[Rfam]
RNA sequence: UGAUAAAUGUCAUUGCAAUCUUGUAUAAGCUCAUUAAUCGGGUGUGGGCGUUUCUACAGGCAACCUUAAUUGCCACAGGCUACAAGAGGAAGCAGAGCCAGG
Numbered sequence: 001u002g003a004u005a006a007a008u009g010u011c012a013u014u015g016c017a018a019u020c021u022u023g024u025a026u027a028a029g030c031u032c033a034u035u036a037a038u039c040g041g042g043u044g045u046g047g048g049c050g051u052u053u054c055u056a057c058a059g060g061c062a063a064c065c066u067u068a069a070u071u072g073c074c075a076c077a078g079g080c081u082a083c084a085a086g087a088g089g090a091a092g093c094a095g096a097g098c099c100a101g102g
Stems, first nucleotide, its partner, number of pairs: 019087007029049006059074005

Annotation:
A member of the RNA family "Purine riboswitch aptamer" from Paenibacillus durus, 102 nucleotides long. The match comes from Rfam's covariance-model search (45 bits). The base pairs follow the family's consensus structure, which is taken from published work.